[Rfam]
Shown here is a 560-nucleotide part of an RNA from Bacteroidetes bacterium UKL13-3, a member of the family "Bacterial small subunit ribosomal RNA".
The source organism's lineage runs through Bacteria, Pseudomonadati and Bacteroidota.
A search with the family's covariance model found it, with a score of 1555 bits.
RNA sequence: ACAAUGAAGAGUUUGAUCCUGGCUCAGGAUUAACGCUAGCGGCAGGCAUAAUACAUGCAAGUUGAACGAGAUAAGUUGUAGCAAUACGGCUUUGAAAGUGGCGCACGGGUGCGUAACACGUAUGCAACCUACCUUUUACCGGGGAAUAGCCUCUCGAAAGAGAGAUUAAUACCCCAUAAUAUAUUUGUUAGGCAUCUAAUAGAUAUUAAAGUUCAGGCGGUAAAAGAUGGGCAUGCGGUUGAUUAGUUAGUUGGUGAGGUAAUGGCUCACCAAGACUUCGAUCAAUAGGGGGUCUGAGAGGAUGUCCCCCCACACUGGUACUGAGACACGGACCAGACUCCUACGGGAGGCAGCAGUAGGGAAUAUUGGACAAUGGGCGCAAGCCUGAUCCAGCCAUGCCGCGUGCAGGAUGAAGGCCCUAUGGGUCGUAAACUGCUUUUGUACGGGAAGAAAUGUCACUACGUGUAGUGAUUUGACGGUACCGUGAGAAUAAGGAUCGGCUAACUUCGUGCCAGCAGCCGCGGUAAUACGAAGGAUCCAAGCGUUGUCCGGAUUUACUG
Numbered sequence: 001a002c003a004a005u006g007a008a009g010a011g012u013u014u015g016a017u018c019c020u021g022g023c024u025c026a027g028g029a030u031u032a033a034c035g036c037u038a039g040c041g042g043c044a045g046g047c048a049u050a051a052u053a054c055a056u057g058c059a060a061g062u063u064g065a066a067c068g069a070g071a072u073a074a075g076u077u078g079u080a081g082c083a084a085u086a087c088g089g090c091u092u093u094g095a096a097a098g099u100g101g102c103g104c105a106c107g108g109g110u111g112c113g114u115a116a117c118a119c120g121u122a123u124g125c126a127a128c129c130u131a132c133c134u135u136u137u138a139c140c141g142g143g144g145a146a147u148a149g150c151c152u153c154u155c156g157a158a159a160g161a162g163a164g165a166u167u168a169a170u171a172c173c174c175c176a177u178a179a180u181a182u183a184u185u186u187g188u189u190a191g192g193c194a195u196c197u198a199a200u201a202g203a204u205a206u207u208a209a210a211g212u213u214c215a216g217g218c219g220g221u222a223a224a225a226g227a228u229g230g231g232c233a234u235g236c237g238g239u240u241g242a243u244u245a246g247u248u249a250g251u252u253g254g255u256g257a258g259g260u261a262a263u264g265g266c267u268c269a270c271c272a273a274g275a276c277u278u279c280g281a282u283c284a285a286u287a288g289g290g291g292g293u294c295u296g297a298g299a300g301g302a303u304g305u306c307c308c309c310c311c312a313c314a315c316u317g318g319u320a321c322u323g324a325g326a327c328a329c330g331g332a333c334c335a336g337a338c339u340c341c342u343a344c345g346g347g348a349g350g351c352a353g354c355a356g357u358a359g360g361g362a363a364u365a366u367u368g369g370a371c372a373a374u375g376g377g378c379g380c381a382a383g384c385c386u387g388a389u390c391c392a393g394c395c396a397u398g399c400c401g402c403g404u405g406c407a408g409g410a411u412g413a414a415g416g417c418c419c420u421a422u423g424g425g426u427c428g429u430a431a432a433c434u435g436c437u438u439u440u441g442u443a444c445g446g447g448a449a450g451a452a453a454u455g456u457c458a459c460u461a462c463g464u465g466u467a468g469u470g471a472u473u474u475g476a477c478g479g480u481a482c483c484g485u486g487a488g489a490a491u492a493a494g495g496a497u498c499g500g501c502u503a504a505c506u507u508c509g510u511g512c513c514a515g516c517a518g519c520c521g522c523g524g525u526a527a528u529a530c531g532a533a534g535g536a537u538c539c540a541a542g543c544g545u546u547g548u549c550c551g552g553a554u555u556u557a558c559u560g
Base pairs, nucleotide, nucleotide: 009025010024011023012022013021027550028549029548030547032546033545034544035543036542037541039402040401041400042399043398044397045395046394047360052358053357054356056355057354058353061102062101063100066099067098074091075090076089077088078087079086080085109313110312111311119237120236121235122234123233124232125231128230129229133226134225135224136223137222138221139220141175142174143173144172149166151164152163153162154161155160181206182205183204184203185202186201187200189198190197191196211218212217239285240284241283246276247275248274251273252272253271254270255269256268257267258266288310289309290308291307292303293302294301295300315336316335317334318333319332338349339348340347341346366392368391369390370389374387375386376385377384378383405436406435407434408433415427416426417425418424442486443485444484445483446482450477456471457470458469494539495538496537497536498535505534506533507532508531509530515522516521